[Rfam]
Rfam assigns this 89-nucleotide RNA sequence from Probosciger aterrimus to the family "mir-204 microRNA precursor family".
The base pairs follow the family's consensus structure, which was predicted with RNAalifold.
A search with the family's covariance model found it, with a score of 61 bits.
On this family, see Gu et al., FEBS Lett 2007: "Identification and characterization of microRNAs from the bovine adipose tissue and mammary gland".

RNA sequence: CCCUGCCCCUGUGAGCUUCCCUUUGUCAUCCUAUGCCUGAGCGAUGCCUGGAGGCUGGGACGGUGAAGGGAGGCUCACGGGUGCCACAG
Numbered sequence: 001c002c003c004u005g006c007c008c009c010u011g012u013g014a015g016c017u018u019c020c021c022u023u024u025g026u027c028a029u030c031c032u033a034u035g036c037c038u039g040a041g042c043g044a045u046g047c048c049u050g051g052a053g054g055c056u057g058g059g060a061c062g063g064u065g066a067a068g069g070g071a072g073g074c075u076c077a078c079g080g081g082u083g084c085c086a087c088a089g
Stems, first nucleotide, its partner, number of pairs: 018071006025064002029060005035055004